[Rfam]
About this RNA: Rfam assigns this 45-nucleotide sequence from Mesobacillus selenatarsenatis to the family "PreQ1 (pre queuosine) riboswitch aptamer". Pairs were carried over by alignment from the consensus structure. The family has 43 seed sequences and 873 matches in Rfam 15.1. For this family Rfam cites "Structural Insights into riboswitch control of the biosynthesis of queuosine, a modified nucleotide found in the anticodon of tRNA" (Kang et al., Mol Cell, 2009).

RNA sequence: AAUAACGUGGUUCGUAACCAUCCCACGUAAAAAAACUAGGAGAGA
Numbered sequence: 001a002a003u004a005a006c007g008u009g010g011u012u013c014g015u016a017a018c019c020a021u022c023c024c025a026c027g028u029a030a031a032a033a034a035a036c037u038a039g040g041a042g043a044g045a
Stems, first nucleotide, its partner, number of pairs: 006027005015038002